[Rfam]
RNA sequence: AAGUGAGGACGACCUCACCGCUCUAUGUCACACGGGGACGGCCCC
Numbered sequence: 001a002a003g004u005g006a007g008g009a010c011g012a013c014c015u016c017a018c019c020g021c022u023c024u025a026u027g028u029c030a031c032a033c034g035g036g037g038a039c040g041g042c043c044c045c
Stems, first nucleotide, its partner, number of pairs: 003018006034045004

This 45-nucleotide RNA from Rheinheimera nanhaiensis belongs to the Rfam family "Guanidine-II riboswitch aptamer (mini-ykkC)".
The family's consensus secondary structure is taken from published work.
The match comes from Rfam's covariance-model search (46 bits).
Lineage of the source: Bacteria > Pseudomonadati > Pseudomonadota > Chromatiaceae > Rheinheimera nanhaiensis.